[Rfam]
RNA sequence: UAUACGGAGAGUUUGAUCCUGGCUCAGGACGAACGCUGGCGGCGUGCCUAACACAUGCAAGUCAAGGGGCCUUUCGGGGCCACUGGCGCACGGGUGAGUAACACGUGGGUAAUCUGCCCUUUGGCCCGGGAUAACAUCUGGAAACGGAUGCUAAUACCGGAUAAUCUCUUUUGAGCAAAUGGAGCUUUCGGGUUCCGCCGAAGGAUGAGCCCGCGCAUGAUUAGCUUGUUGGUGGGGUAACGGCCCACCAAGGCGAAGAUCAUUAGCCGGCCUGAGAGGGUGAACGGCCACACUGGGACUGAGACACGGCCCAGACUCCUACGGGAGGCAGCAGUGGGGAAUAUUGCGCAAUGGACGUAAGUCUGACGCAGCAACGCCGCGUGGAUGACGAAGGCUUUCGGGUCGUAAAGUCCUUUAGAUGGUGAAGAACCGGUACGGGAGUAACUGCCCGUGCCCUGACGGUAGCCAUAGAAUAAGCUCCGGCUAAAUCCGUGCCAGCAGCCGCGGUAAUACGGAUGGAGCAAGCGUUGUCCGGAAUCAUUG
Numbered sequence: 001u002a003u004a005c006g007g008a009g010a011g012u013u014u015g016a017u018c019c020u021g022g023c024u025c026a027g028g029a030c031g032a033a034c035g036c037u038g039g040c041g042g043c044g045u046g047c048c049u050a051a052c053a054c055a056u057g058c059a060a061g062u063c064a065a066g067g068g069g070c071c072u073u074u075c076g077g078g079g080c081c082a083c084u085g086g087c088g089c090a091c092g093g094g095u096g097a098g099u100a101a102c103a104c105g106u107g108g109g110u111a112a113u114c115u116g117c118c119c120u121u122u123g124g125c126c127c128g129g130g131a132u133a134a135c136a137u138c139u140g141g142a143a144a145c146g147g148a149u150g151c152u153a154a155u156a157c158c159g160g161a162u163a164a165u166c167u168c169u170u171u172u173g174a175g176c177a178a179a180u181g182g183a184g185c186u187u188u189c190g191g192g193u194u195c196c197g198c199c200g201a202a203g204g205a206u207g208a209g210c211c212c213g214c215g216c217a218u219g220a221u222u223a224g225c226u227u228g229u230u231g232g233u234g235g236g237g238u239a240a241c242g243g244c245c246c247a248c249c250a251a252g253g254c255g256a257a258g259a260u261c262a263u264u265a266g267c268c269g270g271c272c273u274g275a276g277a278g279g280g281u282g283a284a285c286g287g288c289c290a291c292a293c294u295g296g297g298a299c300u301g302a303g304a305c306a307c308g309g310c311c312c313a314g315a316c317u318c319c320u321a322c323g324g325g326a327g328g329c330a331g332c333a334g335u336g337g338g339g340a341a342u343a344u345u346g347c348g349c350a351a352u353g354g355a356c357g358u359a360a361g362u363c364u365g366a367c368g369c370a371g372c373a374a375c376g377c378c379g380c381g382u383g384g385a386u387g388a389c390g391a392a393g394g395c396u397u398u399c400g401g402g403u404c405g406u407a408a409a410g411u412c413c414u415u416u417a418g419a420u421g422g423u424g425a426a427g428a429a430c431c432g433g434u435a436c437g438g439g440a441g442u443a444a445c446u447g448c449c450c451g452u453g454c455c456c457u458g459a460c461g462g463u464a465g466c467c468a469u470a471g472a473a474u475a476a477g478c479u480c481c482g483g484c485u486a487a488a489u490c491c492g493u494g495c496c497a498g499c500a501g502c503c504g505c506g507g508u509a510a511u512a513c514g515g516a517u518g519g520a521g522c523a524a525g526c527g528u529u530g531u532c533c534g535g536a537a538u539c540a541u542u543g
Base pairs, nucleotide, nucleotide: 009025010024011023012022013021027533028532029531030530032529033528034527035526036525037524039380040379041378042377043376044375045373046372047338052336053335054334056333057332058331061087062086063085066084067083069080070079071078072077094291095290096289104215105214106213107212108211109210110209113208114207118204119203120202121201122200123199124198126160127159128158129157135150136149137148138147139146140145166175167174168173181196182195183194184193185192217263218262219261224254225253226252229251230250231249232248233247234246235245236244266288267287268286269285270281271280272279273278293314294313295312296311297310316327317326318325319324344370346369347368348367352365353364354363355362356361383413384412385411386410393404394403395402396401417474419469420468421467422466423465427460433454434453435452436451437450438449477522478521479520480519481518488517489516490515491514492513498505499504
Background
A member of the RNA family "Bacterial small subunit ribosomal RNA" from Desulfurispirillum indicum, 543 nucleotides of a longer RNA. The sequence is in the family's curated seed alignment. NCBI's taxonomy places the organism under Bacteria, Chrysiogenia, Chrysiogenaceae, Desulfurispirillum, Desulfurispirillum indicum.